[Rfam]
Shown here is a 204-nucleotide RNA from Mesorhizobium australicum, a member of the family "Mesorhizobail RNA 25". On this family, see Fuli et al., Front Microbiol 2017: "A Genome-Wide Prediction and Identification of Intergenic Small RNAs by Comparative Analysis in Mesorhizobium huakuii 7653R". Rfam describes the family as follows. Existence predicted via genome wide comparisons with 4 related strains. Analysed further by deep sequencing and Northern blot under various stress conditions. Showed complex banding pattern. The family's consensus secondary structure was predicted with R-scape. Taxonomically the source falls in Mesorhizobium australicum (Bacteria, Alphaproteobacteria, Phyllobacteriaceae, Mesorhizobium). Rfam classes the family as a small RNA.
RNA sequence: GUCGGAUCGCCCGAAUUAAUAUGGGUCAUCAUCGCUUUAUCGUGGUUAAUUUAGCGUAAACUUAAAUACGAUAUCGAAAUAACGCUCGUGAAGAAACCGGCGGUUGUCCACGGUUGUAUCCAGAAGUUCCAAAAUCAAGCGCAAUAAUACUGCGUAUUUCCAAAUACUCAUAUAUUUUCUGUGGCAGAAAGCAAAAAUCGACAU
Number, nucleotide and partner (000 for none) at each position: 001g000002u014003c013004g012005g011006a000007u000008c000009g000010c000011c005012c004013g003014a002015a000016u000017u000018a000019a000020u000021a000022u000023g000024g000025g000026u000027c000028a000029u000030c000031a046032u045033c044034g043035c042036u000037u000038u000039a000040u000041c000042g035043u034044g033045g032046u031047u000048a000049a000050u000051u000052u000053a000054g000055c000056g000057u000058a198059a000060a000061c000062u000063u186064a000065a000066a000067u000068a000069c000070g185071a000072u183073a182074u000075c000076g000077a000078a000079a000080u000081a000082a000083c000084g000085c000086u000087c000088g159089u000090g000091a000092a000093g129094a128095a127096a000097c000098c000099g000100g000101c000102g121103g120104u000105u118106g117107u116108c000109c000110a000111c000112g000113g000114u000115u000116g107117u106118a105119u000120c103121c102122a000123g000124a000125a000126g000127u095128u094129c093130c000131a000132a000133a000134a000135u000136c000137a000138a000139g000140c000141g000142c000143a000144a000145u000146a158147a157148u156149a000150c000151u000152g000153c000154g000155u000156a148157u147158u146159u088160c000161c000162a000163a000164a000165u000166a000167c000168u000169c000170a000171u000172a000173u000174a000175u000176u000177u000178u000179c000180u000181g000182u073183g072184g000185c070186a063187g000188a000189a000190a000191g000192c000193a000194a000195a000196a000197a000198u058199c000200g000201a000202c000203a000204u000